RNA sequence: GGGGCGACUCUUAGGAACCCCAGUAGUGCAAUGGUGUUAAUAACUUUACUUUUGGCCGAGUAUCGCAGUUAGUGAAUC
Numbered sequence: 001g002g003g004g005c006g007a008c009u010c011u012u013a014g015g016a017a018c019c020c021c022a023g024u025a026g027u028g029c030a031a032u033g034g035u036g037u038u039a040a041u042a043a044c045u046u047u048a049c050u051u052u053u054g055g056c057c058g059a060g061u062a063u064c065g066c067a068g069u070u071a072g073u074g075a076a077u078c
Stems, first nucleotide, its partner, number of pairs: 001021004037072005044065001047062005